[Rfam]
RNA sequence: UGGGGACUCGAGCAGGCUCCCCGUCGAUCCAAAGAGGCGCACGCCUCCAAGUUCUGC
Numbered sequence: 001u002g003g004g005g006a007c008u009c010g011a012g013c014a015g016g017c018u019c020c021c022c023g024u025c026g027a028u029c030c031a032a033a034g035a036g037g038c039g040c041a042c043g044c045c046u047c048c049a050a051g052u053u054c055u056g057c
Stems, first nucleotide, its partner, number of pairs: 001023006012057005034047005